The record is a 107-nucleotide sequence from Ancylostoma duodenale, which matches "SL2 RNA" in Rfam. For this family Rfam cites "trans splicing of polycistronic Caenorhabditis elegans pre-mRNAs: analysis of the SL2 RNA" (Evans and Blumenthal, Mol Cell Biol, 2000). Gene Ontology term of the family: mRNA trans splicing, via spliceosome. From the family's description: This family represents SL2 RNA. SL2 RNA is involved in trans splicing in lower eukaryotes. Trans-splicing is a form of RNA processing. Pairs were carried over by alignment from the consensus structure, which is taken from published work. By type it is a non-coding RNA gene. NCBI's taxonomy places the organism under Eukaryota, Metazoa, Chromadorea, Rhabditomorpha, Ancylostoma.

RNA sequence: GGUCUUGACCCAGUCUCUCCAGGUACUGCUGGCGUACGACCUACCACUAGUGGUUGUGUCGAAAACCAGAAUUUUUGGAUCUCCUCCUCGGGGUAUCCGGGAGGGUA
Dot-bracket structure: .......(((..((.(.(....).)..)).))..).(((((.(((......))).).)))).......................((((...((...))....))).)
Numbered sequence: 001g002g003u004c005u006u007g008a009c010c011c012a013g014u015c016u017c018u019c020c021a022g023g024u025a026c027u028g029c030u031g032g033c034g035u036a037c038g039a040c041c042u043a044c045c046a047c048u049a050g051u052g053g054u055u056g057u058g059u060c061g062a063a064a065a066c067c068a069g070a071a072u073u074u075u076u077g078g079a080u081c082u083c084c085u086c087c088u089c090g091g092g093g094u095a096u097c098c099g100g101g102a103g104g105g106u107a
Stems, first nucleotide, its partner, number of pairs: 008035001009032002013029002016025001018023001037061004041056001043054003085107001086105003092098002